This 84-nucleotide sequence belongs to the Rfam family "Fluoride riboswitch aptamer (crcB RNA motif)".
The match comes from Rfam's covariance-model search (53 bits).
RNA sequence: AGUGAGGCGGGGGAUGGCGUCCCCCUGGGGGCGUUGGCCCCCGAACCGCCCGAUUAUGUGAGGGCUGAUGACGCCUACCUCUCA
Dot-bracket structure: .........[[[[..((((((]]]]......................((((..........))))....)))))).........
Background: The base pairs follow the family's consensus structure, which is taken from published work.